[Rfam]
RNA: Alphaproteobacterial ar15
Organism: Aquibium oceanicum
RNA sequence: AUCUUGCUGGCGCAUUCUCCUCCCAUUGGCGCCGGCAAGUGUUCCCCUCUGGAGGUUUAACCGCUUUUGCGGCACUUCCAUUCCUUGGCCGGUUCCUUUGGAUCCGGCCAUUUUU
Number, nucleotide and partner (000 for none) at each position: 001a040002u000003c039004u038005u037006g000007c035008u034009g000010g032011c031012g030013c029014a000015u000016u000017c000018u000019c000020c000021u000022c000023c000024c000025a000026u000027u000028g000029g013030c012031g011032c010033c000034g008035g007036c000037a005038a004039g003040u001041g000042u000043u000044c000045c000046c000047c000048u000049c000050u080051g079052g078053a077054g076055g075056u074057u000058u000059a000060a000061c000062c000063g000064c000065u000066u000067u000068u000069g000070c000071g000072g000073c000074a056075c055076u054077u053078c052079c051080a050081u000082u000083c000084c000085u000086u110087g109088g108089c107090c106091g105092g103093u102094u101095c100096c000097u000098u000099u000100g095101g094102a093103u092104c000105c091106g090107g089108c088109c087110a086111u000112u000113u000114u000115u000